A member of the RNA family "Small nucleolar RNA snoR53Y" from Durio zibethinus, 88 nucleotides long. The literature on the family includes a 2001 paper in RNA by Brown et al., "Multiple snoRNA gene clusters from Arabidopsis". The base pairs follow the family's consensus structure, which was predicted with WAR. The match comes from Rfam's covariance-model search (66 bits). Rfam classes the family as a C/D-box small nucleolar RNA. Rfam links the family to the GO terms RNA processing and nucleolus.
RNA sequence: GUUCCCAAUGAUGCUUGAAAUUUUAAAACCAUGCUAAUGCUGAUAAUUGAAUGAUUAAAAUAUCAAUUUGAUACAUUUUGAGGGAACU
Number, nucleotide and partner (000 for none) at each position: 001g087002u086003u085004c084005c083006c000007a000008a000009u000010g000011a000012u000013g000014c000015u000016u000017g000018a000019a000020a000021u000022u000023u000024u000025a000026a000027a000028a000029c000030c000031a000032u000033g000034c000035u000036a000037a000038u000039g000040c000041u000042g000043a000044u000045a000046a000047u000048u000049g000050a000051a000052u000053g000054a000055u000056u000057a000058a000059a000060a000061u000062a000063u000064c000065a000066a000067u000068u000069u000070g000071a000072u000073a000074c000075a000076u000077u000078u000079u000080g000081a000082g000083g005084g004085a003086a002087c001088u000